Rfam assigns this 67-nucleotide RNA to the family "Fluoride riboswitch aptamer (crcB RNA motif)". It scores 44 bits against the family's covariance model. The family's consensus secondary structure is taken from published work.
RNA sequence: CUUCGUCAGGGUGAUGGGGUUCACCCACAAUAAACCGCGUUUCUUCGCUGAUGACCCCUAUCCAUCA
Numbered sequence: 001c002u003u004c005g006u007c008a009g010g011g012u013g014a015u016g017g018g019g020u021u022c023a024c025c026c027a028c029a030a031u032a033a034a035c036c037g038c039g040u041u042u043c044u045u046c047g048c049u050g051a052u053g054a055c056c057c058c059u060a061u062c063c064a065u066c067a
Stems, first nucleotide, its partner, number of pairs: 010025004016058006037048003